The family of this 163-nucleotide RNA sequence is "DUF2693 RNA". The family's RNA type in Rfam is small RNA. Rfam's curators put it in the seed alignment. The family's consensus secondary structure is taken from published work.
[Rfam]
RNA sequence: GAUCUUUGACAUACUUGAUACAAACAAUGGCGAAUACAGAUAAUCUGCGGGUGCAAGGCCCGCGCGUGAUUAACCCAUUGUAGUUAGUCUGUGGCCUAUUGCGCACAGAGCGAAGCCGUGGCAGGCACGGAAUACCCGAGGAUCGCAAUCCUCCUGACUACAC
Number, nucleotide and partner (000 for none) at each position: 001g000002a000003u000004c000005u000006u000007u000008g000009a000010c000011a000012u000013a000014c000015u000016u000017g000018a000019u000020a000021c000022a000023a000024a000025c000026a000027a000028u000029g000030g000031c000032g000033a000034a000035u000036a000037c000038a000039g000040a000041u000042a000043a000044u000045c000046u000047g063048c062049g061050g060051g059052u000053g000054c000055a000056a000057g000058g000059c051060c050061c049062g048063c047064g000065c000066g000067u000068g000069a000070u000071u000072a000073a000074c000075c000076c000077a000078u000079u000080g161081u160082a159083g158084u157085u156086a155087g154088u109089c108090u107091g106092u105093g104094g000095c000096c000097u000098a000099u000100u000101g000102c000103g000104c093105a092106c091107a090108g089109a088110g000111c000112g000113a000114a000115g000116c130117c129118g128119u127120g126121g000122c000123a000124g000125g000126c120127a119128c118129g117130g116131a000132a000133u000134a000135c000136c000137c000138g153139a152140g151141g150142a000143u000144c000145g000146c000147a000148a000149u000150c141151c140152u139153c138154c087155u086156g085157a084158c083159u082160a081161c080162a000163c000